[Rfam]
RNA: msiK RNA
RNA sequence: CCAAACCACUCCCUUACUCGGACCGUCCGGCACGUUCCUGCCGGUGGAGGAGAAGAUC
Numbered sequence: 001c002c003a004a005a006c007c008a009c010u011c012c013c014u015u016a017c018u019c020g021g022a023c024c025g026u027c028c029g030g031c032a033c034g035u036u037c038c039u040g041c042c043g044g045u046g047g048a049g050g051a052g053a054a055g056a057u058c
Stems, first nucleotide, its partner, number of pairs: 010051003014047003027044006